[Rfam]
RNA: Pseudomonas rpsL leader
RNA sequence: CGGCGGGGUUGCAUCUUGACUGGGAGGCUGAGUCUCUUUAGACUCAUGCACCCCUAAAUUUGGCAGGGCAUGUUGCUCUGCCAUUUUGCUUUGUUUGAAAAGCAAUAGCGUCGAAAGACAACAGUGGAGCUAAAGA
Number, nucleotide and partner (000 for none) at each position: 001c000002g000003g000004c018005g017006g016007g015008g014009u013010u000011g000012c000013a009014u008015c007016u006017u005018g004019a000020c000021u000022g053023g052024g051025a000026g049027g000028c000029u046030g045031a044032g000033u000034c041035u040036c000037u000038u000039u000040a035041g034042a000043c000044u031045c030046a029047u000048g000049c026050a000051c024052c023053c022054c000055u000056a000057a000058a000059u000060u000061u083062g082063g081064c080065a079066g078067g077068g076069c075070a000071u000072g000073u000074u000075g069076c068077u067078c066079u065080g064081c063082c062083a061084u000085u000086u000087u000088g000089c000090u000091u000092u000093g000094u000095u000096u000097g000098a000099a000100a000101a000102g000103c135104a000105a000106u132107a131108g130109c129110g119111u118112c117113g000114a000115a000116a000117g112118a111119c110120a000121a000122c000123a000124g000125u000126g000127g000128a000129g109130c108131u107132a106133a000134a000135g103136a000